[Rfam]
RNA sequence: AAGUCGGCAAAACAGAUCCGUAACUUCGGGAAAAGGAUUGGCUCUAAGGGUCGGGUACGUUGGGCCUUGGGGGGACGCUCCCGGAGCAGGUUGGCACUAGGCUCACGCCCGGCGCCUCCCAGCACUGUGGGGUCGACGCCCUUGGCAGGCUUCGGCCGUCCGGCGUACGCUUAACGACCAACUUAGAACUGGUACGGACAAG
Numbered sequence: 001a002a003g004u005c006g007g008c009a010a011a012a013c014a015g016a017u018c019c020g021u022a023a024c025u026u027c028g029g030g031a032a033a034a035g036g037a038u039u040g041g042c043u044c045u046a047a048g049g050g051u052c053g054g055g056u057a058c059g060u061u062g063g064g065c066c067u068u069g070g071g072g073g074g075a076c077g078c079u080c081c082c083g084g085a086g087c088a089g090g091u092u093g094g095c096a097c098u099a100g101g102c103u104c105a106c107g108c109c110c111g112g113c114g115c116c117u118c119c120c121a122g123c124a125c126u127g128u129g130g131g132g133u134c135g136a137c138g139c140c141c142u143u144g145g146c147a148g149g150c151u152u153c154g155g156c157c158g159u160c161c162g163g164c165g166u167a168c169g170c171u172u173a174a175c176g177a178c179c180a181a182c183u184u185a186g187a188a189c190u191g192g193u194a195c196g197g198a199c200a201a202g
Base pairs, nucleotide, nucleotide: 015039016038017037018036019035024029040190041189043187044186045185046184047183048182049179050178051177052176053175055168056167057166058165059164060163061162062161063160064146065145066144069141070140071139077133078132079131080130082127083126084125086123087122089120090119093116094115095114097112098111100109101108102107191195
RNA: Eukaryotic large subunit ribosomal RNA, nucleotides 2166 to 2367